[Rfam]
RNA: Bacteroides-1 RNA
Organism: Bacteroides reticulotermitis
RNA sequence: GUGUAAAUCGACCUGGAAUACUAUUUAUAGGUAUGAGAAUAUAGAUGAAUAGUAGGUAUGCCUCUCAGGCAUCGCAGGUAAGA
Numbered sequence: 001g002u003g004u005a006a007a008u009c010g011a012c013c014u015g016g017a018a019u020a021c022u023a024u025u026u027a028u029a030g031g032u033a034u035g036a037g038a039a040u041a042u043a044g045a046u047g048a049a050u051a052g053u054a055g056g057u058a059u060g061c062c063u064c065u066c067a068g069g070c071a072u073c074g075c076a077g078g079u080a081a082g083a
Stems, first nucleotide, its partner, number of pairs: 020053003025048004031042004056073001058072005
Dot-bracket structure: ...................(((..((((..((((....))))..))))..)))..(.(((((.....))))))..........